[Rfam]
RNA: Small nucleolar RNA SNORD53/SNORD92
RNA sequence: UUGCCAUGAUGACGUGCAUGGGGUUUCGCAUGUGGCUGAGUUCCGGUGAUGCCUCUUUUCUCUUGGCUGUCUGAGCAA
Numbered sequence: 001u002u003g004c005c006a007u008g009a010u011g012a013c014g015u016g017c018a019u020g021g022g023g024u025u026u027c028g029c030a031u032g033u034g035g036c037u038g039a040g041u042u043c044c045g046g047u048g049a050u051g052c053c054u055c056u057u058u059u060c061u062c063u064u065g066g067c068u069g070u071c072u073g074a075g076c077a078a
Stems, first nucleotide, its partner, number of pairs: 001078004